This 96-nucleotide RNA from Secundilactobacillus kimchicus belongs to the Rfam family "TPP riboswitch aptamer (THI element)". Taxonomically the source falls in Secundilactobacillus kimchicus (Bacteria, Bacillota, Bacilli, Secundilactobacillus). It scores 62 bits against the family's covariance model. Rfam's curators write: Vitamin B(1) in its active form thiamin pyrophosphate (TPP) is an essential coenzyme that is synthesised by coupling of pyrimidine and thiazole moieties in bacteria.

[Rfam]
RNA sequence: AUAGUUAACUAGGGGCGCAUUUUGCUGAGACGGUUUUGACCGAACCCUUUGAACCUGUGAGCUAACCCUCGCGUAGGAAAGUUAUUAAAAGAGUCU
Numbered sequence: 001a002u003a004g005u006u007a008a009c010u011a012g013g014g015g016c017g018c019a020u021u022u023u024g025c026u027g028a029g030a031c032g033g034u035u036u037u038g039a040c041c042g043a044a045c046c047c048u049u050u051g052a053a054c055c056u057g058u059g060a061g062c063u064a065a066c067c068c069u070c071g072c073g074u075a076g077g078a079a080a081g082u083u084a085u086u087a088a089a090a091g092a093g094u095c096u
Stems, first nucleotide, its partner, number of pairs: 006084005011048004016042001017025003032041003054077004058071004